[Rfam]
RNA: MIR2275 microRNA precursor family
RNA sequence: AACCCGAAGGUGAGCGUUCGAGGGAACCAAAUCCACAGCUGCAACUGCAAGCCACAGGAUUUGGUUUCCUCCAAUGUCUCAUCUUCGACUG
Dot-bracket structure: ....((((..((((.(((.((.((((((((.((........................)).)))))))).)).)))..))))..))))....
Numbered sequence: 001a002a003c004c005c006g007a008a009g010g011u012g013a014g015c016g017u018u019c020g021a022g023g024g025a026a027c028c029a030a031a032u033c034c035a036c037a038g039c040u041g042c043a044a045c046u047g048c049a050a051g052c053c054a055c056a057g058g059a060u061u062u063g064g065u066u067u068c069c070u071c072c073a074a075u076g077u078c079u080c081a082u083c084u085u086c087g088a089c090u091g
Stems, first nucleotide, its partner, number of pairs: 005087004011081004016075003020071002023068008032059002